[Rfam]
Annotation: Rfam assigns this 333-nucleotide RNA from Aquarana catesbeiana to the family "7SK RNA". It scores 229 bits against the family's covariance model. By type it is a non-coding RNA gene. On this family, see Blencowe, Curr Biol 2002: "Transcription: surprising role for an elusive small nuclear RNA". The family has 45 seed sequences and 49,373 matches in Rfam 15.1.
RNA sequence: GGACGUGAGGGCAAUCUGGCUGCAACAUCUGUCACCCCAUUGAUCGAUAGGGUUGAUUCGGCUGAUCUGGCUGGCUAGGUGGGUGUCCCCUUCCUCCCUCACCGCUCCAAGUGCGUUCCUCCCGAAGCUCCGCACUCGGUCGAAAAGGAUGGCCAUCCCCGGUAGAUGAAGCACCGAUCUUCGGUCAAGGGUAUACGAGUAGCUGCGCUCCCCUGCUGGAACCUCCAAACAAGAUCCAAGAAAAUCCACCCAGAGCCAGACUCGGGAAUACCGCCGGGGGGUUAAUUCUUCAGAGUAGAUGCAUACAUUGGGGCAGGCUGGUAUGGCUCCAUU
Numbered sequence: 001g002g003a004c005g006u007g008a009g010g011g012c013a014a015u016c017u018g019g020c021u022g023c024a025a026c027a028u029c030u031g032u033c034a035c036c037c038c039a040u041u042g043a044u045c046g047a048u049a050g051g052g053u054u055g056a057u058u059c060g061g062c063u064g065a066u067c068u069g070g071c072u073g074g075c076u077a078g079g080u081g082g083g084u085g086u087c088c089c090c091u092u093c094c095u096c097c098c099u100c101a102c103c104g105c106u107c108c109a110a111g112u113g114c115g116u117u118c119c120u121c122c123c124g125a126a127g128c129u130c131c132g133c134a135c136u137c138g139g140u141c142g143a144a145a146a147g148g149a150u151g152g153c154c155a156u157c158c159c160c161g162g163u164a165g166a167u168g169a170a171g172c173a174c175c176g177a178u179c180u181u182c183g184g185u186c187a188a189g190g191g192u193a194u195a196c197g198a199g200u201a202g203c204u205g206c207g208c209u210c211c212c213c214u215g216c217u218g219g220a221a222c223c224u225c226c227a228a229a230c231a232a233g234a235u236c237c238a239a240g241a242a243a244a245u246c247c248a249c250c251c252a253g254a255g256c257c258a259g260a261c262u263c264g265g266g267a268a269u270a271c272c273g274c275c276g277g278g279g280g281g282u283u284a285a286u287u288c289u290u291c292a293g294a295g296u297a298g299a300u301g302c303a304u305a306c307a308u309u310g311g312g313g314c315a316g317g318c319u320g321g322u323a324u325g326g327c328u329c330c331a332u333u
Stems, first nucleotide, its partner, number of pairs: 001108003005102007014092001018090002025086009035074002037070003042067004046062001048060001116171002118168001120166002122139004127135001140162003147158003202287001204285001208281002211278003215274002224268001226266001230264001315333001316330002318326003